This 324-nucleotide RNA sequence belongs to the Rfam family "Bacterial RNase P class A".
Rfam classes the family as a ribozyme.
RNA sequence: ACCGCAGACCGCCUUAUCGCCGUUUUGAGCAAUCAAGAGGGAGGAAAGUCCGGACACCAAAGGGAAGCAUAGCGGGUAACACCCGUCGGUCACGUUUUUACAGGCGUGAUUAGGACAAGUGCAACAGAAAGUAUGUACAGGUAAUGCUGUAGUGAAACCAGGUAAACUCUAUGCGGUGAAAUAUCAAGUAUAUCAGCAUUUAAGGGCUUCUCGUCCGUUGUUGAAGGGUAGAUAGCUUGAGUCUCGCAGUAAUGCGGGAUCUAGAUAAAUGAUAAGGCUCUAAUUUAUUGGAGACAGAAUCCGGCUUAUAGGUCUGCUUUUUUU
Numbered sequence: 001a002c003c004g005c006a007g008a009c010c011g012c013c014u015u016a017u018c019g020c021c022g023u024u025u026u027g028a029g030c031a032a033u034c035a036a037g038a039g040g041g042a043g044g045a046a047a048g049u050c051c052g053g054a055c056a057c058c059a060a061a062g063g064g065a066a067g068c069a070u071a072g073c074g075g076g077u078a079a080c081a082c083c084c085g086u087c088g089g090u091c092a093c094g095u096u097u098u099u100a101c102a103g104g105c106g107u108g109a110u111u112a113g114g115a116c117a118a119g120u121g122c123a124a125c126a127g128a129a130a131g132u133a134u135g136u137a138c139a140g141g142u143a144a145u146g147c148u149g150u151a152g153u154g155a156a157a158c159c160a161g162g163u164a165a166a167c168u169c170u171a172u173g174c175g176g177u178g179a180a181a182u183a184u185c186a187a188g189u190a191u192a193u194c195a196g197c198a199u200u201u202a203a204g205g206g207c208u209u210c211u212c213g214u215c216c217g218u219u220g221u222u223g224a225a226g227g228g229u230a231g232a233u234a235g236c237u238u239g240a241g242u243c244u245c246g247c248a249g250u251a252a253u254g255c256g257g258g259a260u261c262u263a264g265a266u267a268a269a270u271g272a273u274a275a276g277g278c279u280c281u282a283a284u285u286u287a288u289u290g291g292a293g294a295c296a297g298a299a300u301c302c303g304g305c306u307u308a309u310a311g312g313u314c315u316g317c318u319u320u321u322u323u324u
Stems, first nucleotide, its partner, number of pairs: 001320001004317007011309001012277007020041002023038006046307003050304005055178004062212004067174005072086005087113001088111010114169002119167002121163002136151005182234004193224005204216004241260008